[Rfam]
RNA sequence: CGUGAAAUUGCUGCCGUUUUUCUUCGCAUUCUUUUUUACCUUCCCCUGAAUGGGAGGCGUUUCGUCGUGUGAUAAAGAAUGCGAAGACGAACAAUAAGGCCUCCCACCUGGGGGGCCUUUUUUAU
Numbered sequence: 001c002g003u004g005a006a007a008u009u010g011c012u013g014c015c016g017u018u019u020u021u022c023u024u025c026g027c028a029u030u031c032u033u034u035u036u037u038a039c040c041u042u043c044c045c046c047u048g049a050a051u052g053g054g055a056g057g058c059g060u061u062u063c064g065u066c067g068u069g070u071g072a073u074a075a076a077g078a079a080u081g082c083g084a085a086g087a088c089g090a091a092c093a094a095u096a097a098g099g100c101c102u103c104c105c106a107c108c109u110g111g112g113g114g115g116c117c118u119u120u121u122u123u124a125u
Stems, first nucleotide, its partner, number of pairs: 016092004021087014036072004042055004056066004096119010
Shown here is a 125-nucleotide sequence from Kluyvera cryocrescens, a member of the family "Phenylalanine leader peptide". Lineage of the source: Bacteria > Pseudomonadota > Enterobacterales > Enterobacteriaceae > Kluyvera. It scores 127 bits against the family's covariance model. Its family is annotated with cellular amino acid metabolic process in the Gene Ontology.